[Rfam]
RNA sequence: GUGGCGGGAAGAUGGCUUCGAGGGGUUGACCCACAGGUCCUUGUGGCCUUACCGUAUACCCCGGGAAGGUCUGAGCGAGUCCAAUCCUCCCUAAAAGGUGGACCCCUGAGAGGGGGCGGGCUCAAUGGUCCGGGGCCCGAACAGGAAAACGUGCCCGUCGAAAGACGGUUGGGAAUCGGGUCUGACCAGCUGAAGCUGAGUGCGAUAGCCAUGUCAACCAGAUAACACAAUUCAGACUAUUCUCUCGCCAC
Number, nucleotide and partner (000 for none) at each position: 001g251002u250003g249004g248005c000006g000007g245008g244009a243010a000011g000012a000013u000014g000015g210016c000017u208018u207019c000020g000021a000022g062023g061024g060025g059026u058027u000028g000029a000030c000031c000032c000033a000034c000035a049036g048037g047038u046039c045040c000041u000042u000043g000044u000045g039046g038047c037048c036049u035050u000051a000052c000053c000054g000055u000056a000057u000058a026059c025060c024061c023062c022063g000064g000065g000066a000067a000068g000069g000070u000071c235072u234073g233074a232075g231076c000077g000078a000079g186080u185081c184082c000083a000084a000085u000086c000087c101088u100089c000090c098091c097092u000093a000094a000095a000096a000097g091098g090099u000100g088101g087102a000103c116104c115105c114106c113107u112108g000109a000110g000111a000112g107113g106114g105115g104116g103117c000118g000119g000120g000121c000122u000123c000124a000125a000126u000127g000128g000129u000130c000131c000132g000133g183134g182135g181136c180137c179138c178139g177140a000141a000142c000143a000144g000145g000146a000147a000148a000149a000150c000151g000152u000153g000154c000155c168156c167157g166158u000159c000160g000161a000162a000163a000164g000165a000166c157167g156168g155169u000170u000171g000172g000173g000174a000175a000176u000177c139178g138179g137180g136181u135182c134183u133184g081185a080186c079187c000188a000189g000190c000191u000192g000193a000194a000195g000196c000197u000198g000199a000200g000201u000202g000203c000204g000205a000206u000207a018208g017209c000210c015211a000212u000213g000214u222215c221216a000217a000218c000219c000220a000221g215222a214223u000224a000225a000226c000227a000228c000229a000230a000231u075232u074233c073234a072235g071236a000237c000238u000239a000240u000241u000242c000243u009244c008245u007246c000247g000248c004249c003250a002251c001
Nuclear RNase P: a 251-nucleotide RNA sequence from Mesorhabditis spiculigera. The match comes from Rfam's covariance-model search (93 bits). Ribonuclease P (RNase P) is a ubiquitous endoribonuclease, found in archaea, bacteria and eukarya as well as chloroplasts and mitochondria. Its best characterised activity is the generation of mature 5'-ends of tRNAs by cleaving the 5'-leader elements of precursor-tRNAs. Its Rfam clan is "RNaseP clan". It is annotated as a ribozyme. Pairs were carried over by alignment from the consensus structure, which is taken from published work. The organism belongs to Mesorhabditis, within Eukaryota.